Rfam assigns this 86-nucleotide sequence from Paenibacillus sp. NFR01 to the family "c-di-GMP-I-GGC riboswitch aptamer". For this family Rfam cites "Bioinformatic analysis of riboswitch structures uncovers variant classes with altered ligand specificity" (Weinberg et al., Proc Natl Acad Sci U S A, 2017). Rfam 15.1 lists 1,298 matches to the family in 717 species. The match comes from Rfam's covariance-model search (67 bits). Pairs were carried over by alignment from the consensus structure, which is taken from published work.
[Rfam]
RNA sequence: CACGAUAACGGCAAACCUGUCGAAAGGCAGGGACGCAAAGCUAUAGGGUCUUCCCCAAACCUUGGGAUGGCAGCCAGCUACCGAAU
Numbered sequence: 001c002a003c004g005a006u007a008a009c010g011g012c013a014a015a016c017c018u019g020u021c022g023a024a025a026g027g028c029a030g031g032g033a034c035g036c037a038a039a040g041c042u043a044u045a046g047g048g049u050c051u052u053c054c055c056c057a058a059a060c061c062u063u064g065g066g067a068u069g070g071c072a073g074c075c076a077g078c079u080a081c082c083g084a085a086u
Stems, first nucleotide, its partner, number of pairs: 003083002011036002016031006034073001039079004046075002048071003